The record is an 87-nucleotide RNA from Arabis nemorensis, which matches "Small nucleolar RNA Z159/U59" in Rfam. Rfam 15.1 lists 1,401 matches to the family in 272 species. The family's consensus secondary structure was predicted with PFOLD. By type it is a C/D-box small nucleolar RNA. A search with the family's covariance model found it, with a score of 60 bits. The source organism's lineage runs through Eukaryota, Streptophyta, Gunneridae, Brassicales and Arabis.
RNA sequence: GCCUCCGAUGAUGAUCAAAACAUAACUUUCGUUCUUCCGAGAUUUUAUCAUGCGGAAAAUUUAUGGAGACCUGAACUGAGUGGAGGC
Numbered sequence: 001g002c003c004u005c006c007g008a009u010g011a012u013g014a015u016c017a018a019a020a021c022a023u024a025a026c027u028u029u030c031g032u033u034c035u036u037c038c039g040a041g042a043u044u045u046u047a048u049c050a051u052g053c054g055g056a057a058a059a060u061u062u063a064u065g066g067a068g069a070c071c072u073g074a075a076c077u078g079a080g081u082g083g084a085g086g087c
Stems, first nucleotide, its partner, number of pairs: 003085004